[Rfam]
RNA: Antisense RNA which regulates isiA expression
RNA sequence: GGUAACCAUAAAUGGUUGCAGGGCUUAAUGUUGGUUCGGUGACAACUCGCACAGUUUCGGUUGCAGCGUCAUACAACCCACCGAAAUACAUUGCUUUUGCAACGAAGAGUAAUGCUCCAAAUCCCAAUAGGAGCAAGUGAUGACCGAGAAUCAUACCCAGCUGUUUGGGGUCUUCCCA
Number, nucleotide and partner (000 for none) at each position: 001g000002g000003u000004a000005a000006c000007c000008a000009u000010a000011a000012a000013u000014g000015g000016u000017u000018g000019c000020a000021g000022g000023g000024c000025u000026u000027a000028a000029u000030g000031u000032u000033g000034g000035u000036u000037c000038g000039g000040u000041g000042a000043c000044a000045a000046c000047u000048c000049g000050c000051a000052c000053a000054g000055u000056u000057u000058c000059g000060g000061u000062u000063g000064c000065a000066g000067c000068g000069u000070c000071a000072u000073a000074c000075a000076a000077c000078c000079c000080a000081c000082c000083g000084a000085a000086a000087u000088a000089c000090a000091u000092u000093g000094c000095u000096u000097u000098u000099g000100c000101a000102a000103c000104g000105a000106a000107g000108a000109g000110u000111a000112a000113u000114g000115c000116u000117c000118c000119a000120a000121a000122u000123c000124c000125c000126a000127a000128u000129a000130g000131g000132a000133g000134c000135a000136a000137g174138u000139g172140a171141u170142g000143a000144c169145c168146g000147a166148g165149a000150a000151u000152c000153a000154u000155a000156c000157c000158c000159a000160g000161c000162u000163g000164u000165u148166u147167g000168g145169g144170g141171u140172c139173u000174u137175c000176c000177c000178a000